[Rfam]
RNA: pan motif
Organism: Bacillus aquiflavi
RNA sequence: UGGGCGGUAUCGAAUAAGAACUGCACCUUUACAGAAAAUAAGAAUAAAAACGGAUAUCUGCCUAGAUCCAUUUUAGGACCGGGACAGAGGG
Numbered sequence: 001u002g003g004g005c006g007g008u009a010u011c012g013a014a015u016a017a018g019a020a021c022u023g024c025a026c027c028u029u030u031a032c033a034g035a036a037a038a039u040a041a042g043a044a045u046a047a048a049a050a051c052g053g054a055u056a057u058c059u060g061c062c063u064a065g066a067u068c069c070a071u072u073u074u075a076g077g078a079c080c081g082g083g084a085c086a087g088a089g090g091g
Base pairs, nucleotide, nucleotide: 002027003026004024005023006022007021008020010019011018058087059086060085061083062082063081065079067078068077069076